RNA sequence: UGUGCCGCCGGACGAGGCGGGCCGCGAGGGUUGGGGAACCCGAUGACCGGUCCGGUUCGAGGCCGCCCCGGGUACUAGGGAGCUCGGGUCGGACGCUCCGGCGAAGGAG
Numbered sequence: 001u002g003u004g005c006c007g008c009c010g011g012a013c014g015a016g017g018c019g020g021g022c023c024g025c026g027a028g029g030g031u032u033g034g035g036g037a038a039c040c041c042g043a044u045g046a047c048c049g050g051u052c053c054g055g056u057u058c059g060a061g062g063c064c065g066c067c068c069c070g071g072g073u074a075c076u077a078g079g080g081a082g083c084u085c086g087g088g089u090c091g092g093a094c095g096c097u098c099c100g101g102c103g104a105a106g107g108a109g
Stems, first nucleotide, its partner, number of pairs: 006103007013059004018054007028041005061094001063092003069086005
Background:
This 109-nucleotide RNA sequence from Actinomyces glycerinitolerans belongs to the Rfam family "Actinomyces-1 RNA". Rfam classes the family as a small RNA. Pairs were carried over by alignment from the consensus structure, which is taken from published work.